[Rfam]
Shown here is a 150-nucleotide sequence from Acidovorax sp. RAC01, a member of the family "Group II catalytic intron D1-D4-7". The literature on the family includes a 2001 paper in Trends Genet by Bonen and Vogel, "The ins and outs of group II introns". About the family: Group II introns are found in rRNA, tRNA and mRNA of organelles in fungi, plants and protists, and also in mRNA in bacteria. The organism belongs to Acidovorax, within Bacteria. Gene Ontology term of the family: Group II intron splicing.
RNA sequence: CCUCUUGUACGACCAUGAGUAGCCUAGAGUGGCAUGCGGGGACGGUAACGUCUCCGUGUGAAGCCCGCUCGACAAUGCGUCCCCGUAACACGGCUGGGGUCCCCUGCGAGGGGGGCGUCAGGACCAUCGCCAGCAGAGGUGAUAUAGGAC
Numbered sequence: 001c002c003u004c005u006u007g008u009a010c011g012a013c014c015a016u017g018a019g020u021a022g023c024c025u026a027g028a029g030u031g032g033c034a035u036g037c038g039g040g041g042a043c044g045g046u047a048a049c050g051u052c053u054c055c056g057u058g059u060g061a062a063g064c065c066c067g068c069u070c071g072a073c074a075a076u077g078c079g080u081c082c083c084c085g086u087a088a089c090a091c092g093g094c095u096g097g098g099g100u101c102c103c104c105u106g107c108g109a110g111g112g113g114g115g116c117g118u119c120a121g122g123a124c125c126a127u128c129g130c131c132a133g134c135a136g137a138g139g140u141g142a143u144a145u146a147g148g149a150c
Stems, first nucleotide, its partner, number of pairs: 002019003006015002028069005033060012083093003094121004104111002126143006